Rfam assigns this 123-nucleotide RNA from Arabidopsis thaliana to the family "MIR3932 microRNA precursor family".
The base pairs follow the family's consensus structure, which was predicted with RNAalifold.
RNA sequence: UGCUCCUUUAUGUCUUCAUUGUCAUCACAAAUUUCUUCAAACUUAAAUAUCUUAAGGACCUUCACCGGACUUGAUAAUAGAGAUUAACGAACUUUGUGAUGACAACGAAGACACAGCUGAUCA
Numbered sequence: 001u002g003c004u005c006c007u008u009u010a011u012g013u014c015u016u017c018a019u020u021g022u023c024a025u026c027a028c029a030a031a032u033u034u035c036u037u038c039a040a041a042c043u044u045a046a047a048u049a050u051c052u053u054a055a056g057g058a059c060c061u062u063c064a065c066c067g068g069a070c071u072u073g074a075u076a077a078u079a080g081a082g083a084u085u086a087a088c089g090a091a092c093u094u095u096g097u098g099a100u101g102a103c104a105a106c107g108a109a110g111a112c113a114c115a116g117c118u119g120a121u122c123a
Stems, first nucleotide, its partner, number of pairs: 001123002004120002008116002011113007021103011033091003042082003048076004054072003059068002
Rfam links the family to the GO terms miRNA-mediated post-transcriptional gene silencing and RISC complex.